[Rfam]
RNA sequence: GGUCCUGUAGCUCAGUGGUUAGAGCGACGGUCUUAUGAGCCGUAGGUCGUGGGUUCGACCCCCGCCGGGACUA
Dot-bracket structure: (((((((..((((........)))).(((((.......))))).....(((((.......)))))))))))).
Numbered sequence: 001g002g003u004c005c006u007g008u009a010g011c012u013c014a015g016u017g018g019u020u021a022g023a024g025c026g027a028c029g030g031u032c033u034u035a036u037g038a039g040c041c042g043u044a045g046g047u048c049g050u051g052g053g054u055u056c057g058a059c060c061c062c063c064g065c066c067g068g069g070a071c072u073a
Stems, first nucleotide, its partner, number of pairs: 001072007010025004027043005049065005
The record is a 73-nucleotide sequence from Perkinsus chesapeaki, which matches "tRNA" in Rfam. Rfam classes the family as a transfer RNA. The organism belongs to Perkinsus, within Eukaryota.